About this RNA: Shown here is a 37-nucleotide RNA from Gulo gulo, a member of the family "L31-Firmicutes ribosomal protein leader". NCBI's taxonomy places the organism under Eukaryota, Opisthokonta, Chordata, Mammalia, Gulo. Clan: Ribosomal Protein L31 Leader clan. It scores 33 bits against the family's covariance model.
RNA sequence: CUCUGUCUCUGACUCACCCCAGACAGGGCAGAAGGAG
Dot-bracket structure: ((((((((............)))))))).........